[Rfam]
RNA sequence: AGUAUUCUUCGGGGCAGGGUGAGAUUCCCUACCGGCGGUGACAGUCCGCGACUCUUCUGGACGUAUGAACAGGAGACUGAUUCGGUGAAAUUCCGGAACCGACAGUUAAAGUCUGGAUGAGAGAAGAAGACA
Numbered sequence: 001a002g003u004a005u006u007c008u009u010c011g012g013g014g015c016a017g018g019g020u021g022a023g024a025u026u027c028c029c030u031a032c033c034g035g036c037g038g039u040g041a042c043a044g045u046c047c048g049c050g051a052c053u054c055u056u057c058u059g060g061a062c063g064u065a066u067g068a069a070c071a072g073g074a075g076a077c078u079g080a081u082u083c084g085g086u087g088a089a090a091u092u093c094c095g096g097a098a099c100c101g102a103c104a105g106u107u108a109a110a111g112u113c114u115g116g117a118u119g120a121g122a123g124a125a126g127a128a129g130a131c132a
Stems, first nucleotide, its partner, number of pairs: 003130001005128006017029003031112002033101002035049004044099002053076004081097005103115003
RNA: FMN riboswitch aptamer (RFN element)